Annotation: Shown here is a 95-nucleotide RNA from Pyramidobacter sp. CG50-2, a member of the family "Selenocysteine transfer RNA". Rfam links the family to the GO term triplet codon-amino acid adaptor activity.
[Rfam]
RNA sequence: GGAGGCGGAUGCAGUCCGGUGGCUGCCCCGGGCCUCAAACCCGCGUGAGGGGCGAUUCUGAUCGUCCUUGGUGUGUUCGAUUCGCACACGCCUCC
Number, nucleotide and partner (000 for none) at each position: 001g095002g094003a093004g092005g091006c090007g089008g087009a000010u000011g026012c025013a024014g023015u022016c021017c000018g000019g000020u000021g016022g015023c014024u013025g012026c011027c045028c000029c043030g042031g041032g040033c000034c000035u000036c000037a000038a000039a000040c032041c031042c030043g029044c000045g027046u000047g069048a068049g067050g066051g065052g000053c000054g000055a000056u000057u000058c000059u000060g000061a000062u000063c000064g000065u051066c050067c049068u048069u047070g000071g000072u086073g085074u084075g083076u000077u000078c000079g000080a000081u000082u000083c075084g074085c073086a072087c008088a000089c007090g006091c005092c004093u003094c002095c001

NCBI's taxonomy places the organism under Bacteria, Thermotogati, Synergistota, Dethiosulfovibrionaceae, Pyramidobacter. The base pairs follow the family's consensus structure, which is taken from published work.